A member of the RNA family "Glycine riboswitch aptamer" from Clostridium taeniosporum, 85 nucleotides long. About the family: This family represents the bacterial glycine riboswitch. NCBI's taxonomy places the organism under Bacteria, Bacillati, Bacillota, Clostridiaceae, Clostridium. On this family, see Mandal et al., Science 2004: "A glycine-dependent riboswitch that uses cooperative binding to control gene expression".
RNA sequence: CCUCUGGAGAGACUCAUAUUUAUAUGAGCACCGAAGGAGCAAAGUAAAUUUUAUUUACUGAAACUCUCAGGUAAAAGGACAGGGG
Numbered sequence: 001c002c003u004c005u006g007g008a009g010a011g012a013c014u015c016a017u018a019u020u021u022a023u024a025u026g027a028g029c030a031c032c033g034a035a036g037g038a039g040c041a042a043a044g045u046a047a048a049u050u051u052u053a054u055u056u057a058c059u060g061a062a063a064c065u066c067u068c069a070g071g072u073a074a075a076a077g078g079a080c081a082g083g084g085g
Stems, first nucleotide, its partner, number of pairs: 001085006013028004030072003033068002037066003043059007